RNA sequence: AAGGUCAUGGGUCUCGGUGGAGUUGGGAAGACUGUUACAGUGCAUAGAUGUCAUCAGAUCAUAAAUUACUGCGUAGGUAUUUCCAACCCACAGAGACCUGAUGGCCUU
Numbered sequence: 001a002a003g004g005u006c007a008u009g010g011g012u013c014u015c016g017g018u019g020g021a022g023u024u025g026g027g028a029a030g031a032c033u034g035u036u037a038c039a040g041u042g043c044a045u046a047g048a049u050g051u052c053a054u055c056a057g058a059u060c061a062u063a064a065a066u067u068a069c070u071g072c073g074u075a076g077g078u079a080u081u082u083c084c085a086a087c088c089c090a091c092a093g094a095g096a097c098c099u100g101a102u103g104g105c106c107u108u
Stems, first nucleotide, its partner, number of pairs: 001108008009099007017091004022087008031078003038071005047060003
A member of the RNA family "MIR3704 microRNA precursor family" from Pinus densata, 108 nucleotides long. The organism belongs to Pinus subgen. Pinus, within Eukaryota.